This 111-nucleotide RNA from Planococcus lenghuensis belongs to the Rfam family "SAM riboswitch aptamer (S box leader)".
RNA sequence: UUCUUAUCAAGAGAGACGGAGGGAUUGGCCCUGCGAUGUCUCAGCAACCAUCCUGGUAAAAGGAACGGUGCUAACUCCAAUAGGCGUUUCACUGCGUCUAGAAGAUAGGAA
Numbered sequence: 001u002u003c004u005u006a007u008c009a010a011g012a013g014a015g016a017c018g019g020a021g022g023g024a025u026u027g028g029c030c031c032u033g034c035g036a037u038g039u040c041u042c043a044g045c046a047a048c049c050a051u052c053c054u055g056g057u058a059a060a061a062g063g064a065a066c067g068g069u070g071c072u073a074a075c076u077c078c079a080a081u082a083g084g085c086g087u088u089u090c091a092c093u094g095c096g097u098c099u100a101g102a103a104g105a106u107a108g109g110a111a
Stems, first nucleotide, its partner, number of pairs: 001111008013042005021031003025080004043072004048068002051063002076103001081100006
The literature on the family includes a 1998 paper in Mol Microbiol by Grundy and Henkin, "The S box regulon: a new global transcription termination control system for methionine and cysteine biosynthesis genes in gram-positive bacteria". Gene Ontology term of the family: regulation of gene expression. NCBI's taxonomy places the organism under Bacteria, Bacillati, Bacilli, Caryophanales, Planococcus.